Notes: The record is a 356-nucleotide RNA from Melghiribacillus thermohalophilus, which matches "transfer-messenger RNA" in Rfam. Rfam classes the family as a non-coding RNA gene. On this family, see Williams and Bartel, RNA 1996: "Phylogenetic analysis of tmRNA secondary structure". The source organism's lineage runs through Bacteria, Bacillota, Caryophanales, Bacillaceae and Melghiribacillus. Rfam's curators write: Bacterial tmRNA, also known as 10Sa RNA or SsrA, is named for its dual tRNA and mRNA-like properties. Its role is to liberate the mRNA from a stalled ribosome. Its Rfam clan is "tRNA clan".
RNA sequence: GGGGACGUUACGGAUUCGACAGGGGUAGAUCGAGCUCAGGUGGCGAGCCGAGGGGACGUCUCGUAAACCGUCAUCGUAAAUAUAACUGGCAAAGAAAACAAUUACGCUUUAGCUGCGUAACGCAAGCUAAAGGAUCCUUCCUGCCAUCGCCCGUGUGGCAGAUUGAAGGGUCUCAAAAUGAGCGGGCUACGCUGGCAUCCGCCGUCUGAGGAUGCUGGAAGAGACUUUCCAGACUAGCCACUUGGAAGCCUGUCGGUAGGCUGAAGAGCUGGUGAAGAAUCAUAUACCGACUACGCUCGUAGAAGCCUGAGUGACGAUAUCUCUGGACGUGGGUUCGACUCCCACCGUCUCCAUUU
Numbered sequence: 001g002g003g004g005a006c007g008u009u010a011c012g013g014a015u016u017c018g019a020c021a022g023g024g025g026u027a028g029a030u031c032g033a034g035c036u037c038a039g040g041u042g043g044c045g046a047g048c049c050g051a052g053g054g055g056a057c058g059u060c061u062c063g064u065a066a067a068c069c070g071u072c073a074u075c076g077u078a079a080a081u082a083u084a085a086c087u088g089g090c091a092a093a094g095a096a097a098a099c100a101a102u103u104a105c106g107c108u109u110u111a112g113c114u115g116c117g118u119a120a121c122g123c124a125a126g127c128u129a130a131a132g133g134a135u136c137c138u139u140c141c142u143g144c145c146a147u148c149g150c151c152c153g154u155g156u157g158g159c160a161g162a163u164u165g166a167a168g169g170g171u172c173u174c175a176a177a178a179u180g181a182g183c184g185g186g187c188u189a190c191g192c193u194g195g196c197a198u199c200c201g202c203c204g205u206c207u208g209a210g211g212a213u214g215c216u217g218g219a220a221g222a223g224a225c226u227u228u229c230c231a232g233a234c235u236a237g238c239c240a241c242u243u244g245g246a247a248g249c250c251u252g253u254c255g256g257u258a259g260g261c262u263g264a265a266g267a268g269c270u271g272g273u274g275a276a277g278a279a280u281c282a283u284a285u286a287c288c289g290a291c292u293a294c295g296c297u298c299g300u301a302g303a304a305g306c307c308u309g310a311g312u313g314a315c316g317a318u319a320u321c322u323c324u325g326g327a328c329g330u331g332g333g334u335u336c337g338a339c340u341c342c343c344a345c346c347g348u349c350u351c352c353a354u355u356u
Base pairs, nucleotide, nucleotide: 001352002351003350004349005348006347007346020325021324022323023322024321025320026319027318034312035311036310037309038308039307040306041305044299045298046297047296048295049063050062051061052060053059055072056071057070058069108132109131110130112127113126114125133172134171135170136169137168138167141161142160143159144158145157146156147155149187150186151185152184153183154182192218193217194216195215196214197213198212199211200210204235207232237273238272239271240270241268242267243266248261249260250259252291253290254289255288256287257286258285329345330344331343332342333341